[Rfam]
RNA sequence: GAAGCCCGCCAGGCCGUCGCUGGUGCAAUCUGAGAAGACGACGCUUGCGUCGGGCCGAAAGGCCGCACUGGAGGAACGUCCGGACUGCACAGGGCAGCGUAGGAGCUAACGGCUCUCCACCGCGAGGUGAGGAUCAGAGCAACAGAGACGAGUCGGUGCCAGGGCAACCUGGCAUCGGGUGAAACGGGCAAUCUCUACGCGCAGCAAUACCAAAUAGGCCAGCGUUGAUGUGGCUCCGCGGAGCUGGCGGGUAGGUAGCACCGAGCCGCUUGGUGACAAGCGGCCCAGAGGAAUGGCGGUCACACCGGGGGCGACCCCGGUGCACAGAAUCCGGCGUAUCGGCGGGCUUCACAC
Numbered sequence: 001g002a003a004g005c006c007c008g009c010c011a012g013g014c015c016g017u018c019g020c021u022g023g024u025g026c027a028a029u030c031u032g033a034g035a036a037g038a039c040g041a042c043g044c045u046u047g048c049g050u051c052g053g054g055c056c057g058a059a060a061g062g063c064c065g066c067a068c069u070g071g072a073g074g075a076a077c078g079u080c081c082g083g084a085c086u087g088c089a090c091a092g093g094g095c096a097g098c099g100u101a102g103g104a105g106c107u108a109a110c111g112g113c114u115c116u117c118c119a120c121c122g123c124g125a126g127g128u129g130a131g132g133a134u135c136a137g138a139g140c141a142a143c144a145g146a147g148a149c150g151a152g153u154c155g156g157u158g159c160c161a162g163g164g165c166a167a168c169c170u171g172g173c174a175u176c177g178g179g180u181g182a183a184a185c186g187g188g189c190a191a192u193c194u195c196u197a198c199g200c201g202c203a204g205c206a207a208u209a210c211c212a213a214a215u216a217g218g219c220c221a222g223c224g225u226u227g228a229u230g231u232g233g234c235u236c237c238g239c240g241g242a243g244c245u246g247g248c249g250g251g252u253a254g255g256u257a258g259c260a261c262c263g264a265g266c267c268g269c270u271u272g273g274u275g276a277c278a279a280g281c282g283g284c285c286c287a288g289a290g291g292a293a294u295g296g297c298g299g300u301c302a303c304a305c306c307g308g309g310g311g312c313g314a315c316c317c318c319g320g321u322g323c324a325c326a327g328a329a330u331c332c333g334g335c336g337u338a339u340c341g342g343c344g345g346g347c348u349u350c351a352c353a354c
Stems, first nucleotide, its partner, number of pairs: 001350010011339001012301007020071007076337003080334005085204004092236004097200005102116005117131001118129004132195002137193002139189002153178011208257004218248006229240004265284008
About this RNA: This 354-nucleotide RNA from Pseudorhodoferax sp. Leaf267 belongs to the Rfam family "Bacterial RNase P class A". Pairs were carried over by alignment from the consensus structure, which is taken from published work. A search with the family's covariance model found it, with a score of 203 bits.